[Rfam]
RNA: Flavo-1 RNA
RNA sequence: UUUGCGCUAGGGAUUGAAGUGGCAUCCUUUUAUGAAGAAUGAAUAAAAGAUAUAACGAAAAGCCCGCUCGAGC
Numbered sequence: 001u002u003u004g005c006g007c008u009a010g011g012g013a014u015u016g017a018a019g020u021g022g023c024a025u026c027c028u029u030u031u032a033u034g035a036a037g038a039a040u041g042a043a044u045a046a047a048a049g050a051u052a053u054a055a056c057g058a059a060a061a062g063c064c065c066g067c068u069c070g071a072g073c
Stems, first nucleotide, its partner, number of pairs: 010065003014061002019056002024051003030046004